[Rfam]
RNA sequence: GUCGGAUACGGCGAUAUGUAUCCUCAAACUGUGAUCGGAAAGCUUGUUGGAGCCUGCUGCUGCAUAACCGGCGUCCUAGUUAUUGCCUUACCAAUUCCAAUCAUUGUUAAUAAC
Numbered sequence: 001g002u003c004g005g006a007u008a009c010g011g012c013g014a015u016a017u018g019u020a021u022c023c024u025c026a027a028a029c030u031g032u033g034a035u036c037g038g039a040a041a042g043c044u045u046g047u048u049g050g051a052g053c054c055u056g057c058u059g060c061u062g063c064a065u066a067a068c069c070g071g072c073g074u075c076c077u078a079g080u081u082a083u084u085g086c087c088u089u090a091c092c093a094a095u096u097c098c099a100a101u102c103a104u105u106g107u108u109a110a111u112a113a114c
Base pairs, nucleotide, nucleotide: 001114002113004111008107009106010105011104013102014101015100018097020095021094037077038076040074049063051061
Rfam assigns this 114-nucleotide RNA from Oikopleura dioica to the family "Potassium channel RNA editing signal". A search with the family's covariance model found it, with a score of 83 bits. It is annotated as a cis-regulatory element. The base pairs follow the family's consensus structure, which is taken from published work. A reference for the family is Bhalla et al. (2004), "Control of human potassium channel inactivation by editing of a small mRNA hairpin", Nat Struct Mol Biol.